[Rfam]
RNA sequence: GCUAAAUGUAGUGCCGCUUUGUCUUUUUCAAGUUUUCUCUGUGGAGUAAGCUUUAAUCUUGGUGGCAGAAAUAG
Dot-bracket structure: ...........(((((((..(..........(((..(.(....).)..)))......)..))))))).......

Annotation
The record is a 74-nucleotide RNA sequence from Arabidopsis thaliana, which matches "Small nucleolar RNA snoR110" in Rfam. On this family, see Marker et al., Curr Biol 2002: "Experimental RNomics: identification of 140 candidates for small non-messenger RNAs in the plant Arabidopsis thaliana". The source organism's lineage runs through Eukaryota, Magnoliopsida, eudicotyledons, Gunneridae and Arabidopsis. The family has 2 seed sequences and 42 matches in Rfam 15.1.